[Rfam]
This 93-nucleotide sequence from Brachybacterium alimentarium belongs to the Rfam family "TPP riboswitch aptamer (THI element)". Taxonomically the source falls in Brachybacterium (Bacteria, Bacillati, Actinomycetes, Micrococcales).
RNA sequence: AGCGACGACACGGGGUGCCCCACCGGGGCUGAGAACACACCCGCCGAACCUGAACGAGCUCGCACUCGCGGAGGGAUGUCAUGGAUGAGCGCA
Number, nucleotide and partner (000 for none) at each position: 001a000002g000003c000004g000005a000006c000007g080008a079009c078010a077011c043012g042013g041014g040015g000016u037017g029018c028019c027020c026021c025022a000023c000024c000025g021026g020027g019028g018029c017030u000031g000032a000033g000034a000035a000036c000037a016038c000039a000040c014041c013042c012043g011044c000045c000046g000047a000048a000049c074050c073051u072052g000053a000054a000055c068056g067057a066058g065059c000060u000061c000062g000063c000064a000065c058066u057067c056068g055069c000070g000071g000072a051073g050074g049075g000076a000077u010078g009079u008080c007081a000082u000083g000084g000085a000086u000087g000088a000089g000090c000091g000092c000093a000